RNA sequence: GACCGCGGCGUGUCAAUCGGACAUGACGGGGAAGGUGAACGCAUUCGAUUUUUCCGAUUUCUCAAUGCGGGCAACGAAACGCCAGACGAGCAUCUGACCCAUCCGCCGC
Numbered sequence: 001g002a003c004c005g006c007g008g009c010g011u012g013u014c015a016a017u018c019g020g021a022c023a024u025g026a027c028g029g030g031g032a033a034g035g036u037g038a039a040c041g042c043a044u045u046c047g048a049u050u051u052u053u054c055c056g057a058u059u060u061c062u063c064a065a066u067g068c069g070g071g072c073a074a075c076g077a078a079a080c081g082c083c084a085g086a087c088g089a090g091c092a093u094c095u096g097a098c099c100c101a102u103c104c105g106c107c108g109c
Stems, first nucleotide, its partner, number of pairs: 006108004011023004025103002028100003034094004040069006047063001070083003
The family of this 109-nucleotide sequence from Arminella tubonensis is "Rhizobiales sRNA Atu_At1".
A search with the family's covariance model found it, with a score of 101 bits.
The family's RNA type in Rfam is small RNA.
Rfam 15.1 lists 200 matches to the family in 177 species.